This 73-nucleotide RNA from Tripterygium wilfordii belongs to the Rfam family "Small nucleolar RNA R66". It scores 62 bits against the family's covariance model.
[Rfam]
RNA sequence: UCUGAUGAUGGCAUGGAAUCUUUGAGACCUGAUAAUCGUUGUGAUGAAAGUGACAAGCUUAUUUUCUGAGGAU
Numbered sequence: 001u002c003u004g005a006u007g008a009u010g011g012c013a014u015g016g017a018a019u020c021u022u023u024g025a026g027a028c029c030u031g032a033u034a035a036u037c038g039u040u041g042u043g044a045u046g047a048a049a050g051u052g053a054c055a056a057g058c059u060u061a062u063u064u065u066c067u068g069a070g071g072a073u
Stems, first nucleotide, its partner, number of pairs: 001072003032042003
About the family: snoR66 is a C/D box small nucleolar RNA, which acts as a methylation guide for 18S ribosomal RNA in plants. snoR66 has been alternatively named snoZ269 in rice. It is annotated as a C/D-box small nucleolar RNA. Gene Ontology terms of the family: nucleolus and RNA processing. The family's consensus secondary structure was predicted with PFOLD.